This 133-nucleotide sequence from Nothoprocta perdicaria belongs to the Rfam family "Small nucleolar RNA SNORA1". Rfam classes the family as an H/ACA-box small nucleolar RNA. The source organism's lineage runs through Eukaryota, Metazoa, Bilateria, Euteleostomi and Nothoprocta. Gene Ontology terms of the family: nucleolus and RNA processing. A search with the family's covariance model found it, with a score of 80 bits. From the family's description: ACA1 is a member of the H/ACA class of snoRNA that guide the sites of modification of uridines to pseudouridines.

[Rfam]
RNA sequence: UGCCUCGUUAUUCAGCUGCUGGACACAUCUUGUGGUGUGUCUGGAAUGGAGCAACGUGGCUAGAGGAGCAACAGGUUGUGCUUUCCUCACUGUAAGGGUGGUUGCAGUGGUGACAAUGAGGCCUGGAACAGGG
Number, nucleotide and partner (000 for none) at each position: 001u000002g060003c059004c058005u000006c056007g055008u054009u000010a000011u000012u000013c000014a000015g000016c000017u000018g000019c000020u043021g042022g041023a040024c039025a038026c037027a000028u000029c000030u000031u000032g000033u000034g000035g000036u000037g026038u025039g024040u023041c022042u021043g020044g000045a000046a000047u000048g000049g000050a000051g000052c000053a000054a008055c007056g006057u000058g004059g003060c002061u000062a000063g000064a000065g000066g000067a000068g000069c000070a000071a000072c125073a124074g123075g122076u000077u000078g000079u000080g000081c000082u000083u000084u000085c112086c000087u110088c109089a108090c107091u000092g000093u000094a000095a000096g000097g000098g000099u000100g000101g000102u000103u000104g000105c000106a000107g090108u089109g088110g087111u000112g085113a000114c000115a000116a000117u000118g000119a000120g000121g000122c075123c074124u073125g072126g000127a000128a000129c000130a000131g000132g000133g000